Shown here is a 141-nucleotide RNA sequence from Cohnella lupini, a member of the family "Group II catalytic intron D1-D4-4". Pairs were carried over by alignment from the consensus structure. Group II introns are found in rRNA, tRNA and mRNA of organelles in fungi, plants and protists, and also in mRNA in bacteria. On this family, see Lehmann and Schmidt, Crit Rev Biochem Mol Biol 2003: "Group II introns: structure and catalytic versatility of large natural ribozymes". It scores 70 bits against the family's covariance model.

[Rfam]
RNA sequence: UAGUCGGUGAAAGUCUGGUCGCGGGAGGGGCCAAGCCCCCGCGUAGCUAGGGUACUUACGUGUGGCGAAAUCUGUGCGUAAAAGCGUAUCGACAAAAGUACUUCUCAGAGACAAGGCGAGCAAUCUGCCAGGUCAACGCUG
Numbered sequence: 001u002a003g004u005c006g007g008u009g010a011a012a013g014u015c016u017g018g019u020c021g022c023g024g025g026a027g028g029g030g031c032c033a034a035g036c037c038c039c040c041g042c043g044u045a046g047c048u049a050g051g052g053u054a055c056u057u058a059c060g061u062g063u064g065g066c067g068a069a070a071u072c073u074g075u076g077c078g079u080a081a082a083a084g085c086g087u088a089u090c091g092a093c094a095a096a097a098g099u100a101c102u103u104c105u106c107a108g109a110g111a112c113a114a115g116g117c118g119a120g121c122a123a124u125c126u127g128c129c130a131g132g133u134c135a136a137c138g139c140u141g
Stems, first nucleotide, its partner, number of pairs: 020043005051090005056081006065072001098117001101115003105111001121141002